[Rfam]
RNA sequence: GCGGUGGCUUAGUGGUCGUAUGUAUGACGUCAUUUACUGGAUUUUUAGGAGUGACAUCAUAUGUACGGCUGCUAAACUGCUGC
Number, nucleotide and partner (000 for none) at each position: 001g000002c082003g081004g080005u079006g078007g077008c000009u000010u000011a000012g000013u000014g000015g069016u068017c067018g066019u065020a064021u063022g062023u000024a060025u059026g058027a057028c000029g055030u000031c053032a052033u051034u000035u000036a000037c049038u048039g000040g000041a000042u000043u000044u000045u000046u000047a000048g038049g037050a000051g033052u032053g031054a000055c029056a000057u027058c026059a025060u024061a000062u022063g021064u020065a019066c018067g017068g016069c015070u000071g000072c000073u000074a000075a000076a000077c007078u006079g005080c004081u003082g002083c000

A member of the RNA family "mir-489 microRNA precursor family" from Xenopus laevis, 83 nucleotides long. It scores 98 bits against the family's covariance model. The family's consensus secondary structure was predicted with RNAalifold. A reference for the family is Bentwich et al. (2005), "Identification of hundreds of conserved and nonconserved human microRNAs", Nat Genet.